[Rfam]
RNA sequence: UUAGCAAGUGAUGUUGACUGUCACAUGUCAUGUUCUUAUUGGAUGAUGAUUGUCACGUGUAUUGGUCAAUGAAAACAACAAUGCAUUUCAUCUUUCAUGGAGUUGACAUCCAAUCAGAACAUGACAUGUGACAGUCAUCAUCC
Numbered sequence: 001u002u003a004g005c006a007a008g009u010g011a012u013g014u015u016g017a018c019u020g021u022c023a024c025a026u027g028u029c030a031u032g033u034u035c036u037u038a039u040u041g042g043a044u045g046a047u048g049a050u051u052g053u054c055a056c057g058u059g060u061a062u063u064g065g066u067c068a069a070u071g072a073a074a075a076c077a078a079c080a081a082u083g084c085a086u087u088u089c090a091u092c093u094u095u096c097a098u099g100g101a102g103u104u105g106a107c108a109u110c111c112a113a114u115c116a117g118a119a120c121a122u123g124a125c126a127u128g129u130g131a132c133a134g135u136c137a138u139c140a141u142c143c
Base pairs, nucleotide, nucleotide: 020132021131022130023129025127026126029123030122031121033119034118035117036116038114039113040112041111042110043109044108045107